Annotation
Rfam assigns this 382-nucleotide RNA from Pseudomonas flexibilis to the family "Pseudomonas sRNA CrcZ".

[Rfam]
RNA sequence: ACAACAACAACAAAAACCAAGAAACUCCAUAACAAGAACAACACGCAACGACUCCUGCAUAACAACGAUAAAAAGGCGGAGACGCAGCAAACUGAUCAUUUUGGAGCAGAACGGUCUACGGGGCUUCCCCGGGCACAUGCGAAACAACAAGACUGCCUGUGAUGCAGCGAAGCGCAUGGCCGGAUCAUCGAUCAGGACCACGUCAGCAACCAAAGUAAUCCGUUCGCUAUUGGCCCCCGAUUGGGGGUGCGUAUGCGGGCUUCGGCCUGGCCUACGCUUCGGCGAUAACAACACCAACAGCCGAAACAAUAACAACAACAGCAACACUACUUCAGGGGGAGCUUCGGCUCCCCUUUCCAUUGGCCAAUAACCUUGCGUUCCC
Number, nucleotide and partner (000 for none) at each position: 001a000002c000003a000004a000005c000006a000007a000008c000009a000010a000011c000012a000013a000014a000015a000016a000017c000018c000019a000020a000021g000022a000023a000024a000025c000026u000027c000028c000029a000030u000031a000032a000033c000034a000035a000036g000037a000038a000039c000040a000041a000042c000043a000044c000045g000046c000047a000048a000049c084050g083051a000052c081053u080054c079055c078056u000057g000058c000059a000060u000061a000062a000063c000064a000065a000066c000067g000068a000069u000070a000071a000072a000073a000074a000075g000076g000077c000078g055079g054080a053081g052082a000083c050084g049085c000086a000087g000088c000089a000090a000091a000092c000093u000094g000095a000096u000097c000098a000099u215100u214101u213102u212103g211104g000105a000106g000107c000108a000109g000110a000111a000112c000113g000114g207115u206116c000117u000118a000119c000120g000121g000122g000123g000124c000125u000126u000127c000128c000129c000130c182131g181132g180133g000134c178135a177136c000137a000138u000139g000140c000141g000142a000143a000144a000145c000146a000147a000148c000149a000150a000151g000152a000153c167154u166155g165156c164157c000158u000159g000160u000161g000162a000163u000164g156165c155166a154167g153168c000169g000170a000171a000172g000173c000174g000175c000176a000177u135178g134179g000180c132181c131182g130183g000184a000185u000186c000187a000188u000189c000190g000191a000192u000193c000194a000195g000196g000197a000198c000199c000200a000201c000202g000203u000204c000205a000206g115207c114208a000209a000210c000211c103212a102213a101214a100215g099216u000217a000218a000219u000220c000221c000222g000223u000224u000225c000226g000227c000228u000229a000230u000231u000232g000233g248234c247235c246236c245237c244238c000239g000240a000241u000242u000243g000244g237245g236246g235247g234248u233249g000250c000251g000252u000253a000254u000255g000256c000257g000258g000259g000260c000261u000262u000263c000264g000265g000266c000267c000268u000269g365270g364271c363272c362273u000274a000275c000276g301277c300278u299279u000280c000281g000282g000283c000284g000285a000286u000287a000288a000289c000290a000291a000292c000293a000294c000295c000296a000297a000298c000299a278300g277301c276302c000303g000304a000305a000306a000307c000308a000309a000310u000311a000312a000313c000314a000315a000316c000317a000318a000319c000320a000321g000322c000323a000324a000325c000326a000327c000328u000329a000330c000331u000332u000333c000334a355335g354336g353337g352338g351339g350340a349341g348342c347343u000344u000345c000346g000347g342348c341349u340350c339351c338352c337353c336354u335355u334356u000357c000358c000359a000360u000361u000362g272363g271364c270365c269366a000367a000368u000369a000370a000371c000372c000373u000374u000375g000376c000377g000378u000379u000380c000381c000382c000
A search with the family's covariance model found it, with a score of 200 bits. Its family is annotated with carbon catabolite repression of transcription in the Gene Ontology. The family's consensus secondary structure was predicted with WAR. Rfam 15.1 lists 127 matches to the family in 96 species.